[Rfam]
RNA sequence: CUUAAAAACCUCAUUGAGUGCAGCGUUGAUGAUAUAUCCUCGUCUCGAUUCGAUGAAUUCCUUUAAUUCAUCAUUUUCGAGCGCUGUUGUUUCAUUGACGCUGCAUUCAAUAAUGUUUUUA
Number, nucleotide and partner (000 for none) at each position: 001c000002u000003u000004a000005a000006a118007a117008a116009c115010c000011u113012c000013a111014u110015u109016g108017a107018g106019u105020g104021c103022a102023g101024c100025g099026u098027u097028g096029a000030u094031g093032a092033u000034a000035u000036a000037u000038c000039c000040u000041c000042g000043u000044c000045u000046c000047g000048a000049u000050u000051c000052g000053a000054u000055g000056a000057a000058u000059u000060c000061c000062u000063u000064u000065a000066a000067u000068u000069c000070a000071u000072c000073a000074u000075u000076u000077u000078c000079g000080a000081g000082c000083g000084c000085u000086g000087u000088u000089g000090u000091u000092u032093c031094a030095u000096u028097g027098a026099c025100g024101c023102u022103g021104c020105a019106u018107u017108c016109a015110a014111u013112a000113a011114u000115g009116u008117u007118u006119u000120u000121a000